[Rfam]
RNA sequence: GCGCAGCGCGUACUCCCACUGUCCAGGUUCGGGGGUGAGCGCCUGGUCACCGACGUGGUCGCCGUCGGUGAGGGUGCCCAGGGCGGCCUCGUCGCCGUACUUGCCGCGGCCGAUGCGGUGGAUCUUGCCGUGCGCGACGAGCAGGAGCGCGUCCACGGGCGCCCCGGCGGAGGUGAGGGUGUCGCCGGAGGAGAACUCGUGCUGCUCGCAGCGGUCGGCGAGCUGCUGCAGCGCGCCGUCGUCGGUGAGACCGCGCAGCAGGGGGAUCUCCCGCAGUUCGGACGGGAUGACGCCGACGUCGGCGCCCGUGUUGGUGAACUGGAUCCGGCCGUCGCCGAGGGUGUGGGUGAGCCGACGGUUCACCCGGUAGGUGCCGCCGGUGGUCUCCACCCAGGGCAGAAUGCGCAGCAGCCAGCGGGAGGAGACGCCCUGCAUCUGCGGGGGCGUCUUGGUGGUGGUGGCGAGUUUCCGGGCCGCGGCGGUCGAAAGACUCGUCGG
Numbered sequence: 001g002c003g004c005a006g007c008g009c010g011u012a013c014u015c016c017c018a019c020u021g022u023c024c025a026g027g028u029u030c031g032g033g034g035g036u037g038a039g040c041g042c043c044u045g046g047u048c049a050c051c052g053a054c055g056u057g058g059u060c061g062c063c064g065u066c067g068g069u070g071a072g073g074g075u076g077c078c079c080a081g082g083g084c085g086g087c088c089u090c091g092u093c094g095c096c097g098u099a100c101u102u103g104c105c106g107c108g109g110c111c112g113a114u115g116c117g118g119u120g121g122a123u124c125u126u127g128c129c130g131u132g133c134g135c136g137a138c139g140a141g142c143a144g145g146a147g148c149g150c151g152u153c154c155a156c157g158g159g160c161g162c163c164c165c166g167g168c169g170g171a172g173g174u175g176a177g178g179g180u181g182u183c184g185c186c187g188g189a190g191g192a193g194a195a196c197u198c199g200u201g202c203u204g205c206u207c208g209c210a211g212c213g214g215u216c217g218g219c220g221a222g223c224u225g226c227u228g229c230a231g232c233g234c235g236c237c238g239u240c241g242u243c244g245g246u247g248a249g250a251c252c253g254c255g256c257a258g259c260a261g262g263g264g265g266a267u268c269u270c271c272c273g274c275a276g277u278u279c280g281g282a283c284g285g286g287a288u289g290a291c292g293c294c295g296a297c298g299u300c301g302g303c304g305c306c307c308g309u310g311u312u313g314g315u316g317a318a319c320u321g322g323a324u325c326c327g328g329c330c331g332u333c334g335c336c337g338a339g340g341g342u343g344u345g346g347g348u349g350a351g352c353c354g355a356c357g358g359u360u361c362a363c364c365c366g367g368u369a370g371g372u373g374c375c376g377c378c379g380g381u382g383g384u385c386u387c388c389a390c391c392c393a394g395g396g397c398a399g400a401a402u403g404c405g406c407a408g409c410a411g412c413c414a415g416c417g418g419g420a421g422g423a424g425a426c427g428c429c430c431u432g433c434a435u436c437u438g439c440g441g442g443g444g445c446g447u448c449u450u451g452g453u454g455g456u457g458g459u460g461g462c463g464a465g466u467u468u469c470c471g472g473g474c475c476g477c478g479g480c481g482g483u484c485g486a487a488a489g490a491c492u493c494g495u496c497g498g
Stems, first nucleotide, its partner, number of pairs: 006391001008390001010388001012386001015383002019328001021326001022323005029317002036314001038312005046306001048304001050302004055234002058229002061226002064223002066112004076104001078103001080101002083098005119220001123218002128213001131210001132207001134205003139200001141198001144197002150193001156188001158186004162179002167174002235297001237295002241291004246286001254280002257278003261272003330343004352380003356376003361373004392432006402422001404419001406417001408416001438477004446469001449465002452462002489496001